[Rfam]
RNA sequence: GCAUUCCUGCGGUGUUCGACGGUCUCCCGGUUCCCCUUGAGCCUAAUUACCUAACCAGGGGUGGGAACCGGCGCAGGUGAGUAUGCCCGCCUUGCUGCGGGAAACCUAAUGCGUCGCAGACCGCCCCACUUGAGCGCUUGUCUCAAGGAUAGUGGACGACUGACGGCACGCGCGGGAAUGUC
Numbered sequence: 001g002c003a004u005u006c007c008u009g010c011g012g013u014g015u016u017c018g019a020c021g022g023u024c025u026c027c028c029g030g031u032u033c034c035c036c037u038u039g040a041g042c043c044u045a046a047u048u049a050c051c052u053a054a055c056c057a058g059g060g061g062u063g064g065g066a067a068c069c070g071g072c073g074c075a076g077g078u079g080a081g082u083a084u085g086c087c088c089g090c091c092u093u094g095c096u097g098c099g100g101g102a103a104a105c106c107u108a109a110u111g112c113g114u115c116g117c118a119g120a121c122c123g124c125c126c127c128a129c130u131u132g133a134g135c136g137c138u139u140g141u142c143u144c145a146a147g148g149a150u151a152g153u154g155g156a157c158g159a160c161u162g163a164c165g166g167c168a169c170g171c172g173c174g175g176g177a178a179u180g181u182c
Stems, first nucleotide, its partner, number of pairs: 002180010012169004017165002034148002038145003041141002058127003062123003069116007081105002086101005
Rfam assigns this 182-nucleotide sequence from Salinisphaera hydrothermalis to the family "6S / SsrS RNA". Rfam's curators write: E. coli 6S RNA was the first non coding RNA to be sequenced, but its function was unknown until recently. It consists of 184 nucleotides that fold into an extended hairpin structure with a large single-stranded internal bulge. The 6S RNA specifically associates with RNA polymerase holoenzyme containing the sigma70 specificity factor. Rfam classes the family as a non-coding RNA gene. The source organism's lineage runs through Bacteria, Gammaproteobacteria, Salinisphaerales, Salinisphaera and Salinisphaera hydrothermalis. The match comes from Rfam's covariance-model search (89 bits).